[Rfam]
RNA sequence: ACCCUCCAGUUCCCUUUCCCAUGAGAUCUAAGCAGUGGUCUGGAUGGCCAUAACAGGAGGAAAAGUAAUACUGAAACCGACCUCAGUGGUUUUCUAGCACAUUGGGCUAGUUUCAGACGGGU
Numbered sequence: 001a002c003c004c005u006c007c008a009g010u011u012c013c014c015u016u017u018c019c020c021a022u023g024a025g026a027u028c029u030a031a032g033c034a035g036u037g038g039u040c041u042g043g044a045u046g047g048c049c050a051u052a053a054c055a056g057g058a059g060g061a062a063a064a065g066u067a068a069u070a071c072u073g074a075a076a077c078c079g080a081c082c083u084c085a086g087u088g089g090u091u092u093u094c095u096a097g098c099a100c101a102u103u104g105g106g107c108u109a110g111u112u113u114c115a116g117a118c119g120g121g122u
Stems, first nucleotide, its partner, number of pairs: 003060005019047004025040004077110001079108001081106003

About this RNA: This 122-nucleotide sequence from Chrysochloris asiatica belongs to the Rfam family "Small nucleolar RNA SNORA61". The organism belongs to Chrysochloris, within Eukaryota. Gene Ontology terms of the family: nucleolus and RNA processing. Rfam classes the family as an H/ACA-box small nucleolar RNA. Rfam describes the family as follows. ACA61 is a member of the H/ACA class of snoRNA that guide the sites of modification of uridines to pseudouridines.